A member of the RNA family "mir-190 microRNA precursor family" from Leptidea sinapis, 78 nucleotides long. NCBI's taxonomy places the organism under Eukaryota, Aparaglossata, Ditrysia, Pieridae, Leptidea. A search with the family's covariance model found it, with a score of 60 bits. Gene Ontology terms of the family: miRNA-mediated post-transcriptional gene silencing and RISC complex. For this family Rfam cites "Cloning and expression of new microRNAs from zebrafish" (Kloosterman et al., Nucleic Acids Res, 2006).
[Rfam]
RNA sequence: GUGUCGUUGAGAUAUGUUUGAUAUUCUUGGUUGUUUACCGUGUAUCAGCCGAGAAUCAAACAUAUUACACAACGACCG
Numbered sequence: 001g002u003g004u005c006g007u008u009g010a011g012a013u014a015u016g017u018u019u020g021a022u023a024u025u026c027u028u029g030g031u032u033g034u035u036u037a038c039c040g041u042g043u044a045u046c047a048g049c050c051g052a053g054a055a056u057c058a059a060a061c062a063u064a065u066u067a068c069a070c071a072a073c074g075a076c077c078g
Base pairs, nucleotide, nucleotide: 005074006073007072008071009070011066012065013064014063015062016061017060018059019058020057021056022055024053025052029050030049031048032047033046